[Rfam]
RNA sequence: UGUGCAAGUGACGAUAUCAGACAGGGACAUCAGCACCUCCAAUGGAGAAUGAUGAUUUGUCUUUGGGAAUCUCUCUGAUGCACA
Numbered sequence: 001u002g003u004g005c006a007a008g009u010g011a012c013g014a015u016a017u018c019a020g021a022c023a024g025g026g027a028c029a030u031c032a033g034c035a036c037c038u039c040c041a042a043u044g045g046a047g048a049a050u051g052a053u054g055a056u057u058u059g060u061c062u063u064u065g066g067g068a069a070u071c072u073c074u075c076u077g078a079u080g081c082a083c084a
Base pairs, nucleotide, nucleotide: 002083003082004081005080006079
Small nucleolar RNA R44/J54/Z268 family: an 84-nucleotide sequence from Vitis vinifera. Rfam links the family to the GO terms nucleolus and RNA processing. The sequence is in the family's curated seed alignment.